iscR stability element: a 112-nucleotide RNA from Klebsiella indica. On this family, see Desnoyers et al., EMBO J 2009: "Small RNA-induced differential degradation of the polycistronic mRNA iscRSUA". Rfam links the family to the GO term response to host iron concentration.
[Rfam]
Nucleotides: 112
Base pairs, nucleotide, nucleotide: 008104010102011101012100014078015077016076017075018074019073020072021071022070023042024041025040026039027038028037046068047067049066050065051064081097083095084094085093
Number, partner (000 for none) and nucleotide at each position: 001000u002000a003000a004000a005000a006000a007000g008104a009000u010102u011101u012100c013000a014078g015077a016076a017075u018074c019073a020072g021071g022070c023042c024041g025040g026039g027038a028037u029000a030000u031000u032000u033000c034000a035000u036000c037028a038027u039026c040025c041024u042023g043000u044000c045000u046068a047067c048000u049066c050065g051064g052000u053000c054000g055000u056000a057000c058000a059000u060000c061000a062000a063000g064051c065050c066049g067047g068046u069000u070022g071021c072020c073019u074018g075017a076016u077015u078014c079000c080000u081097u082000g083095c084094a085093u086000u087000g088000a089000a090000g091000c092000g093085a094084u095083g096000u097081a098000c099000g100012g101011a102010g103000u104008u105000u106000a107000u108000a109000g110000a111000g112000c